[Rfam]
RNA sequence: AGUGUGCGAUAGAGCUACCUCCACGUGGUGCACCCUGGGCAAUGUAUUCUCAUACGGCAAAAAAGUCCAU
Numbered sequence: 001a002g003u004g005u006g007c008g009a010u011a012g013a014g015c016u017a018c019c020u021c022c023a024c025g026u027g028g029u030g031c032a033c034c035c036u037g038g039g040c041a042a043u044g045u046a047u048u049c050u051c052a053u054a055c056g057g058c059a060a061a062a063a064a065g066u067c068c069a070u
Base pairs, nucleotide, nucleotide: 001036002035004033005032006031007030017029018028019027043056044055045054046053047052
Annotation:
This 70-nucleotide RNA sequence from Rodentolepis nana belongs to the Rfam family "HDV ribozyme from F. prausnitzii". Pairs were carried over by alignment from the consensus structure, which is taken from published work. The match comes from Rfam's covariance-model search (44 bits).